The record is a 101-nucleotide RNA from Streptohalobacillus salinus, which matches "Purine riboswitch aptamer" in Rfam.
[Rfam]
RNA sequence: UCAAAACAAAAUAUAUUUCGUCGUAUAAUCUUGAGAAUAGGGCUCAUGAGUUUCUACCGACCACCGUAAAUGGUCUGUCUACGCAGAAGUUAAUGAAGGAU
Numbered sequence: 001u002c003a004a005a006a007c008a009a010a011a012u013a014u015a016u017u018u019c020g021u022c023g024u025a026u027a028a029u030c031u032u033g034a035g036a037a038u039a040g041g042g043c044u045c046a047u048g049a050g051u052u053u054c055u056a057c058c059g060a061c062c063a064c065c066g067u068a069a070a071u072g073g074u075c076u077g078u079c080u081a082c083g084c085a086g087a088a089g090u091u092a093a094u095g096a097a098g099g100a101u
Base pairs, nucleotide, nucleotide: 018087019086022083023082024081025080029049030048032046033045034044035043058077059075060074061073062072063071
Dot-bracket structure: .................((..((((...((.((((.......)))).))........((((((.......))))).)..))))..))..............

Riboswitches are metabolite binding domains within certain messenger RNAs that serve as precision sensors for their corresponding targets.